[Rfam]
RNA: TPP riboswitch aptamer (THI element)
RNA sequence: AAAAACUUGUCGGAGUGCCAUUUGGCUGAGAUCGCAUAAUUAAAUGCGGGAUCCGCGGAACCUGAUCAGGCUUAACCACCUGCGUAGGGAACAAGAAAAUUUACUUU
Numbered sequence: 001a002a003a004a005a006c007u008u009g010u011c012g013g014a015g016u017g018c019c020a021u022u023u024g025g026c027u028g029a030g031a032u033c034g035c036a037u038a039a040u041u042a043a044a045u046g047c048g049g050g051a052u053c054c055g056c057g058g059a060a061c062c063u064g065a066u067c068a069g070g071c072u073u074a075a076c077c078a079c080c081u082g083c084g085u086a087g088g089g090a091a092c093a094a095g096a097a098a099a100u101u102u103a104c105u106u107u
Stems, first nucleotide, its partner, number of pairs: 006095005011055004016049001017026003033048005061088004067082004